[Rfam]
RNA sequence: GUGGCAGGGAUAUUGUGUAUCAGCAUCGUGCUACAAUUAAUGCACUCUGUUUCCGAAAGAGUUCCGUGCAAAAUCAAUUGUAAGAGGAAGAUGGGCAGUUGUAUUUCAUCCUAAUAAUUAGAAAUAUCAACAAUCAUCUGCCAGACAUCA
Numbered sequence: 001g002u003g004g005c006a007g008g009g010a011u012a013u014u015g016u017g018u019a020u021c022a023g024c025a026u027c028g029u030g031c032u033a034c035a036a037u038u039a040a041u042g043c044a045c046u047c048u049g050u051u052u053c054c055g056a057a058a059g060a061g062u063u064c065c066g067u068g069c070a071a072a073a074u075c076a077a078u079u080g081u082a083a084g085a086g087g088a089a090g091a092u093g094g095g096c097a098g099u100u101g102u103a104u105u106u107c108a109u110c111c112u113a114a115u116a117a118u119u120a121g122a123a124a125u126a127u128c129a130a131c132a133a134u135c136a137u138c139u140g141c142c143a144g145a146c147a148u149c150a
Stems, first nucleotide, its partner, number of pairs: 004069003008065003015045006086142002089139006098131004

A member of the RNA family "small nucleolar RNA snoR135" from Gossypium mustelinum, 150 nucleotides long. The family's RNA type in Rfam is H/ACA-box small nucleolar RNA. The base pairs follow the family's consensus structure, which was predicted with RNAalifold. For this family Rfam cites "Mining small RNA sequencing data: a new approach to identify small nucleolar RNAs in Arabidopsis" (Chen and Wu, Nucleic Acids Res, 2009).